[Rfam]
RNA sequence: CUUGAAACAUGUAUCGGGAUACGUAUCAUUUCUUGAAACAUGUAUCAAGAAAUGAUACGUAUCCCGAUACAUGUUUCAAGA
Numbered sequence: 001c002u003u004g005a006a007a008c009a010u011g012u013a014u015c016g017g018g019a020u021a022c023g024u025a026u027c028a029u030u031u032c033u034u035g036a037a038a039c040a041u042g043u044a045u046c047a048a049g050a051a052a053u054g055a056u057a058c059g060u061a062u063c064c065c066g067a068u069a070c071a072u073g074u075u076u077c078a079a080g081a
Stems, first nucleotide, its partner, number of pairs: 004077003009072006016065005022059003026055009

The record is an 81-nucleotide RNA from Oryzias melastigma, which matches "mir-92 microRNA precursor family" in Rfam. The family is grouped with related families in Rfam's "mir-92 microRNA precursor clan". Pairs were carried over by alignment from the consensus structure, which was predicted with PFOLD. On this family, see Mourelatos et al., Genes Dev 2002: "miRNPs: a novel class of ribonucleoproteins containing numerous microRNAs". The source organism's lineage runs through Eukaryota, Deuterostomia, Actinopteri, Neopterygii and Oryzias.